RNA: Cyano-1 RNA
Organism: Crocosphaera subtropica
RNA sequence: UGUGGUGUGAGAGGGUAUGUAAGAAAGCACUUGGGGUCGAAACACGGCAAGACUCCCAGGUGUUUUCUAUU
Number, nucleotide and partner (000 for none) at each position: 001u000002g000003u000004g000005g000006u000007g000008u000009g000010a000011g000012a000013g000014g000015g067016u000017a000018u000019g000020u000021a000022a000023g000024a066025a065026a064027g063028c062029a000030c000031u059032u058033g057034g056035g055036g053037u052038c051039g000040a000041a000042a000043c000044a000045c000046g000047g000048c000049a000050a000051g038052a037053c036054u000055c035056c034057c033058a032059g031060g000061u000062g028063u027064u026065u025066u024067c015068u000069a000070u000071u000